Shown here is a 265-nucleotide RNA from Mus spicilegus, a member of the family "Mason-Pfizer monkey virus packaging signal". Pairs were carried over by alignment from the consensus structure, which was predicted with PFOLD. About the family: This family represents a group of sequences that are related to the Mason-Pfizer monkey virus (MPMV) packaging signal. The match comes from Rfam's covariance-model search (86 bits). It is annotated as a cis-regulatory element. The organism belongs to Mus, within Eukaryota.
RNA sequence: UGGUGCCCAACGUGUGGCUUGAGUACCAAGGCUACAGUGAAGAACACUGCAGUGUUUCUGUUCGGCCGAUUUUGUGUGGAAGAUGCCCUGCGUGGGAGCUUGCCACCUCAACUAGAGAUCCUGGUGAGUCCUGGGUGAUCAUGGGACAGGCACCUAGUAACCAUGAACAAGAGUGGAAGGUUUGAAAAAGGCUUUAAAGGUACAAGGGAUAAAGGUUAAAAUGCAUGACUUGCAUUUUUUGAUUUUGUAAAAGAGAUUUGUCCGU
Numbered sequence: 001u002g003g004u005g006c007c008c009a010a011c012g013u014g015u016g017g018c019u020u021g022a023g024u025a026c027c028a029a030g031g032c033u034a035c036a037g038u039g040a041a042g043a044a045c046a047c048u049g050c051a052g053u054g055u056u057u058c059u060g061u062u063c064g065g066c067c068g069a070u071u072u073u074g075u076g077u078g079g080a081a082g083a084u085g086c087c088c089u090g091c092g093u094g095g096g097a098g099c100u101u102g103c104c105a106c107c108u109c110a111a112c113u114a115g116a117g118a119u120c121c122u123g124g125u126g127a128g129u130c131c132u133g134g135g136u137g138a139u140c141a142u143g144g145g146a147c148a149g150g151c152a153c154c155u156a157g158u159a160a161c162c163a164u165g166a167a168c169a170a171g172a173g174u175g176g177a178a179g180g181u182u183u184g185a186a187a188a189a190g191g192c193u194u195u196a197a198a199g200g201u202a203c204a205a206g207g208g209a210u211a212a213a214g215g216u217u218a219a220a221a222u223g224c225a226u227g228a229c230u231u232g233c234a235u236u237u238u239u240u241g242a243u244u245u246u247g248u249a250a251a252a253g254a255g256a257u258u259u260g261u262c263c264g265u
Stems, first nucleotide, its partner, number of pairs: 006031002012026003035049004082120003086115001090112001092106004125148002129145003156194001157192002203241008213231006250265001253262002